MIR6450 microRNA precursor family: a 107-nucleotide sequence from Populus deltoides. The match comes from Rfam's covariance-model search (74 bits). The source organism's lineage runs through Eukaryota, Viridiplantae, fabids, Saliceae and Populus. The family has 2 seed sequences and 53 matches in Rfam 15.1.
RNA sequence: GAGACCCAAGAAAAUUGGGUCCUGAAGCAGGACCCAUUAGCCUUGGGUCCUGAGGCAGGAUCCAAGUGAUUUGGGUCCUGAGGCAGGACCCAAGUGAAUUGGGUCAU
Numbered sequence: 001g002a003g004a005c006c007c008a009a010g011a012a013a014a015u016u017g018g019g020u021c022c023u024g025a026a027g028c029a030g031g032a033c034c035c036a037u038u039a040g041c042c043u044u045g046g047g048u049c050c051u052g053a054g055g056c057a058g059g060a061u062c063c064a065a066g067u068g069a070u071u072u073g074g075g076u077c078c079u080g081a082g083g084c085a086g087g088a089c090c091c092a093a094g095u096g097a098a099u100u101g102g103g104u105c106a107u
Stems, first nucleotide, its partner, number of pairs: 001107001003105007013095001015093010029079008043065008